[Rfam]
RNA sequence: CACAUCGCAAAAUUUUCAACCUAGUACGAGAGGAACCAUUGAUUAGCACAAUUGGUCAUCGCGCUUGGUUGAAAAGCUAGUGGCACGAAGCUACCAUGCCCUAGAUUAUCACUGAACGCUUCUAAGUCAGAAUCCAGGCUAGAAGUGACGCAUGCGCCGGUCACCCAAUUGCCAACCCACAGUAAGGGCCUCUGGCCCCUAAGGGCACAUGUCAUAAGUGUAGUGACCGCAGCGGACAAGUUGCGGGCGCCUCCUUGAAACGUAAUUCCCACCGAGCAGUGGGUAGAAUCCUUUGCAGAUGACUUAAAUAUGUGACUGUUAGAACACUGGCACCCCUACGGUGCAGCAAAAAUUAAUUCAUCCGGUGAUCCAA
Numbered sequence: 001c002a003c004a005u006c007g008c009a010a011a012a013u014u015u016u017c018a019a020c021c022u023a024g025u026a027c028g029a030g031a032g033g034a035a036c037c038a039u040u041g042a043u044u045a046g047c048a049c050a051a052u053u054g055g056u057c058a059u060c061g062c063g064c065u066u067g068g069u070u071g072a073a074a075a076g077c078u079a080g081u082g083g084c085a086c087g088a089a090g091c092u093a094c095c096a097u098g099c100c101c102u103a104g105a106u107u108a109u110c111a112c113u114g115a116a117c118g119c120u121u122c123u124a125a126g127u128c129a130g131a132a133u134c135c136a137g138g139c140u141a142g143a144a145g146u147g148a149c150g151c152a153u154g155c156g157c158c159g160g161u162c163a164c165c166c167a168a169u170u171g172c173c174a175a176c177c178c179a180c181a182g183u184a185a186g187g188g189c190c191u192c193u194g195g196c197c198c199c200u201a202a203g204g205g206c207a208c209a210u211g212u213c214a215u216a217a218g219u220g221u222a223g224u225g226a227c228c229g230c231a232g233c234g235g236a237c238a239a240g241u242u243g244c245g246g247g248c249g250c251c252u253c254c255u256u257g258a259a260a261c262g263u264a265a266u267u268c269c270c271a272c273c274g275a276g277c278a279g280u281g282g283g284u285a286g287a288a289u290c291c292u293u294u295g296c297a298g299a300u301g302a303c304u305u306a307a308a309u310a311u312g313u314g315a316c317u318g319u320u321a322g323a324a325c326a327c328u329g330g331c332a333c334c335c336c337u338a339c340g341g342u343g344c345a346g347c348a349a350a351a352a353u354u355a356a357u358u359c360a361u362c363c364g365g366u367g368a369u370c371c372a373a
Base pairs, nucleotide, nucleotide: 003150005148006147007146008145012140016042017041018040019039046099047098048097053093054092055091060087061086063084064083065080066079067078068077069076070075102136104134109129111127112126113125158282160280161279164276286371288369289368290367292306295303312363314361318353319352330344331343332342333341334340
Rfam assigns this 373-nucleotide part of an RNA from Gossypium laxum to the family "Eukaryotic large subunit ribosomal RNA". Rfam 15.1 lists 107,465 matches to the family in 2,616 species. Taxonomically the source falls in Gossypium (Eukaryota, Spermatophyta, Magnoliopsida, Malvales). Its family is annotated with ribosome and structural constituent of ribosome in the Gene Ontology.